[Rfam]
RNA: Salmonella enterica sRNA STnc40
Organism: Silvanigrella aquatica
RNA sequence: UAGCUGCUACGGUUUACGUAAAGUAAUUUCGUAUUUUUAUACAAAAAGGCGCAUUUUUAUGCGCCUUUUUU
Numbered sequence: 001u002a003g004c005u006g007c008u009a010c011g012g013u014u015u016a017c018g019u020a021a022a023g024u025a026a027u028u029u030c031g032u033a034u035u036u037u038u039a040u041a042c043a044a045a046a047a048g049g050c051g052c053a054u055u056u057u058u059a060u061g062c063g064c065c066u067u068u069u070u071u
Stems, first nucleotide, its partner, number of pairs: 003019002006013002044069011